[Rfam]
RNA sequence: GCUCCCCCUCUCUAAUCCUUGCUCCCUGGGUGAGGAUGCUUUCUGGAUGCAAUGCACCUGGGCAAGGAUUCCAGAAGAGGAGC
Numbered sequence: 001g002c003u004c005c006c007c008c009u010c011u012c013u014a015a016u017c018c019u020u021g022c023u024c025c026c027u028g029g030g031u032g033a034g035g036a037u038g039c040u041u042u043c044u045g046g047a048u049g050c051a052a053u054g055c056a057c058c059u060g061g062g063c064a065a066g067g068a069u070u071c072c073a074g075a076a077g078a079g080g081a082g083c
Stems, first nucleotide, its partner, number of pairs: 014070007025062008037051003
Dot-bracket structure: .............(((((((....((((((((....(((.........)))...)))))))).))))))).............
Rfam assigns this 83-nucleotide RNA sequence from Erinaceus europaeus to the family "mir-500 microRNA precursor family". The family's consensus secondary structure was predicted with RNAalifold. A reference for the family is Mineno et al. (2006), "The expression profile of microRNAs in mouse embryos", Nucleic Acids Res.